[Rfam]
RNA sequence: GGGUGCUGGGAGCCACGCGUUCGCAGCAGGUUUUCGCGCAGGUCGGGCCGCCGCG
Numbered sequence: 001g002g003g004u005g006c007u008g009g010g011a012g013c014c015a016c017g018c019g020u021u022c023g024c025a026g027c028a029g030g031u032u033u034u035c036g037c038g039c040a041g042g043u044c045g046g047g048c049c050g051c052c053g054c055g
Stems, first nucleotide, its partner, number of pairs: 005027004010022003037055003041052003